[Rfam]
RNA: Small nucleolar RNA SNORA64/SNORA10 family
RNA sequence: ACUCUCCCAGCUCUGCGUAGUCACACCUGCCUGAACACGUGUGAUUUUCGUAAUGGGGAGAGAGACGAAGGAUCUCCUCGGGACGUCGGAUAGGCCUCCUUGUGGCCUUUCUUUCCUUGAGGGGCGCAACAAGC
Numbered sequence: 001a002c003u004c005u006c007c008c009a010g011c012u013c014u015g016c017g018u019a020g021u022c023a024c025a026c027c028u029g030c031c032u033g034a035a036c037a038c039g040u041g042u043g044a045u046u047u048u049c050g051u052a053a054u055g056g057g058g059a060g061a062g063a064g065a066c067g068a069a070g071g072a073u074c075u076c077c078u079c080g081g082g083a084c085g086u087c088g089g090a091u092a093g094g095c096c097u098c099c100u101u102g103u104g105g106c107c108u109u110u111c112u113u114u115c116c117u118u119g120a121g122g123g124g125c126g127c128a129a130c131a132a133g134c
Stems, first nucleotide, its partner, number of pairs: 003065004008060001011058005019046008074124005080118003088112003092108005